[Rfam]
RNA: Small Cajal body specific RNA 6
Organism: Sander lucioperca
RNA sequence: GGUCGGUGAUGUGAUGUAAAAGGUCUGAAACUCAGGUUCCCCUCCGUCGGCCAUAUUUGCUCCCAGCAGCCCCGGCGGCUCUGAGCUCCCAUCAUGCUCUAGUGGUGCAGUGGUGGUCCCAGCCGCUGCUGACAGAAAGACAAACAGGAAGUGACAUCACAGCAGGAGUCUGUACAGAGAGCCUACAGGCUCCGUGUGAUGAUGACUCACAUCCAACAGAACCAAUCGGCAUGGAGCGUGAGGCUGAGGGGGCGGGGCCUGAGAGAUGAUCUCACUCCUCUACUGAGACC
Number, nucleotide and partner (000 for none) at each position: 001g290002g289003u288004c287005g000006g000007u000008g000009a000010u000011g000012u000013g000014a000015u000016g000017u000018a000019a000020a000021a000022g000023g000024u000025c000026u000027g000028a000029a000030a000031c000032u000033c000034a272035g271036g270037u269038u268039c000040c000041c249042c248043u247044c246045c000046g244047u243048c242049g000050g000051c000052c000053a000054u000055a000056u000057u000058u000059g000060c236061u235062c234063c233064c131065a130066g129067c128068a127069g126070c125071c000072c000073c000074g000075g000076c000077g000078g000079c000080u000081c000082u000083g000084a000085g000086c000087u000088c000089c116090c115091a114092u113093c112094a111095u110096g000097c107098u000099c000100u000101a000102g000103u000104g000105g000106u000107g097108c000109a000110g095111u094112g093113g092114u091115g090116g089117u000118c000119c000120c000121a000122g000123c000124c000125g070126c069127u068128g067129c066130u065131g064132a000133c000134a000135g000136a000137a000138a000139g214140a000141c000142a000143a000144a000145c000146a000147g000148g213149a212150a000151g210152u209153g208154a000155c000156a000157u000158c000159a000160c000161a000162g000163c000164a000165g193166g192167a191168g190169u189170c188171u187172g186173u185174a000175c000176a000177g000178a000179g000180a000181g000182c000183c000184u000185a173186c172187a171188g170189g169190c168191u167192c166193c165194g000195u000196g000197u000198g000199a000200u000201g000202a000203u000204g000205a000206c000207u000208c153209a152210c151211a000212u149213c148214c139215a000216a000217c000218a000219g000220a000221a000222c000223c000224a000225a000226u000227c000228g000229g000230c000231a000232u000233g063234g062235a061236g060237c000238g000239u000240g000241a000242g048243g047244c046245u000246g044247a043248g042249g041250g000251g000252g000253c000254g000255g000256g000257g000258c000259c000260u000261g000262a000263g000264a000265g000266a000267u000268g038269a037270u036271c035272u034273c000274a000275c000276u000277c000278c000279u000280c000281u000282a000283c000284u000285g000286a000287g004288a003289c002290c001